[Rfam]
RNA sequence: AAGACCUUUAAAGACAGUCCCGUGAGGCUGAGAAGGUAACGGCAACUAGACGAUAGGAGUUUUUGUGUGCACACAUUCUCCUGUUCGCCUAGAAAAAACCUCUCAUCAGCACGAUGAGAGGUUUUUUGUU
Numbered sequence: 001a002a003g004a005c006c007u008u009u010a011a012a013g014a015c016a017g018u019c020c021c022g023u024g025a026g027g028c029u030g031a032g033a034a035g036g037u038a039a040c041g042g043c044a045a046c047u048a049g050a051c052g053a054u055a056g057g058a059g060u061u062u063u064u065g066u067g068u069g070c071a072c073a074c075a076u077u078c079u080c081c082u083g084u085u086c087g088c089c090u091a092g093a094a095a096a097a098a099c100c101u102c103u104c105a106u107c108a109g110c111a112c113g114a115u116g117a118g119a120g121g122u123u124u125u126u127u128g129u130u
Stems, first nucleotide, its partner, number of pairs: 004037006015030005053084007095125013